[Rfam]
A member of the RNA family "mir-155 microRNA precursor family" from Oryctolagus cuniculus, 84 nucleotides long.
RNA sequence: CUGCUAAUGCUAAUUGUGAUAGGAAUUUGUUUUGUUUUGCUUUGCUUUGCUUUCUGAUAGACUCCUAGCUGUUAGCAUUAGCAG
Numbered sequence: 001c002u003g004c005u006a007a008u009g010c011u012a013a014u015u016g017u018g019a020u021a022g023g024a025a026u027u028u029g030u031u032u033u034g035u036u037u038u039g040c041u042u043u044g045c046u047u048u049g050c051u052u053u054c055u056g057a058u059a060g061a062c063u064c065c066u067a068g069c070u071g072u073u074a075g076c077a078u079u080a081g082c083a084g
Stems, first nucleotide, its partner, number of pairs: 004081011020067004026061006
It scores 56 bits against the family's covariance model.